[Rfam]
RNA: Saccharopolyspora sRNA 350
Nucleotides: 506
Base pairs, nucleotide, nucleotide: 006390007389008388011385012384015381022321025316026315031313032312033311034310035309037307042304043303045301047300048299049298051233054230056228057227058226059225060224061223065111066110075103077102078101079100082097083096084095085094117222119220122217127212130209137203141199142198143197146196147195152191153190154188155187157185158184160182161178162177165174235295236294237293240290241289244286245285250282251281252280253279254278256277257276258275260271262269329342330341331340332339353377355375356374357373360372361371362370363369391431392430393429394428395427396426397425399423400422401421403418404417405416407415437476438475440473443470444469446467447465448464449463451461452460477505478504480500481499486497487496488495
Number, partner (000 for none) and nucleotide at each position: 001000g002000u003000g004000g005000c006390g007389g008388u009000g010000c011385a012384g013000u014000c015381c016000c017000a018000c019000c020000g021000g022321g023000c024000g025316u026315c027000c028000g029000c030000g031313u032312c033311c034310a035309g036000c037307a038000g039000g040000g041000c042304g043303u044000u045301c046000u047300c048299a049298c050000c051233g052000a053000a054230c055000c056228g057227g058226u059225c060224g061223c062000c063000g064000u065111c066110g067000g068000c069000g070000a071000g072000u073000a074000c075103g076000g077102c078101g079100a080000c081000g082097g083096c084095g085094g086000u087000c088000u089000c090000g091000u092000u093000u094085c095084c096083g097082u098000a099000c100079u101078u102077g103075c104000c105000g106000a107000c108000c109000g110066u111065g112000g113000u114000c115000u116000g117222g118000c119220u120000g121000a122217c123000g124000c125000g126000a127212c128000c129000g130209u131000g132000a133000g134000c135000g136000a137203u138000c139000a140000u141199g142198u143197g144000g145000a146196a147195c148000u149000g150000c151000u152191c153190g154188g155187c156000g157185g158184g159000c160182g161178u162177g163000c164000c165174g166000c167000g168000u169000u170000c171000g172000a173000c174165c175000a176000g177162c178161g179000u180000c181000u182160c183000a184158c185157c186000g187155g188154c189000a190153c191152g192000g193000a194000a195147g196146u197143c198142g199141c200000g201000c202000u203137g204000g205000a206000c207000g208000c209130a210000g211000c212127g213000g214000u215000c216000g217122g218000c219000g220119a221000u222117c223061g224060c225059g226058g227057u228056c229000a230054g231000c232000a233051c234000c235295u236294c237293c238000a239000c240290g241289u242000c243000c244286u245285c246000g247000a248000a249000g250282c251281c252280g253279c254278g255000c256277a257276g258275c259000a260271g261000g262269g263000c264000c265000a266000g267000u268000u269262c270000g271260c272000c273000g274000a275258g276257c277256u278254c279253g280252c281251g282250g283000g284000g285245g286244a287000u288000c289241a290240c291000c292000c293237g294236g295235a296000c297000g298049g299048u300047g301045g302000c303043a304042c305000c306000g307037u308000c309035c310034u311033g312032g313031a314000c315026g316025a317000a318000c319000u320000c321022c322000a323000c324000g325000c326000g327000c328000c329342c330341g331340u332339c333000g334000c335000c336000g337000a338000c339332g340331g341330u342329g343000u344000a345000g346000g347000u348000c349000a350000g351000c352000c353377g354000a355375c356374g357373g358000u359000u360372c361371a362370c363369c364000c365000g366000g367000u368000a369363g370362g371361u372360g373357c374356c375355g376000c377353c378000c379000u380000u381015g382000a383000c384012c385011u386000c387000g388008a389007c390006c391431c392430a393429g394428g395427g396426g397425a398000g399423c400422g401421u402000c403418c404417g405416c406000a407415g408000c409000a410000g411000c412000c413000a414000g415407c416405g417404c418403g419000a420000g421401g422400u423399g424000a425397u426396c427395c428394c429393c430392u431391g432000c433000a434000u435000c436000u437476g438475c439000g440473g441000c442000g443470c444469g445000g446467a447465c448464u449463u450000g451461g452460u453000c454000g455000u456000g457000g458000u459000g460452g461451c462000a463449a464448g465447g466000u467446u468000g469444c470443g471000g472000g473440c474000a475438g476437c477505c478504g479000c480500c481499g482000u483000g484000c485000c486497c487496a488495g489000g490000c491000u492000g493000g494000a495488c496487u497486g498000c499481c500480g501000a502000g503000g504478c505477g506000g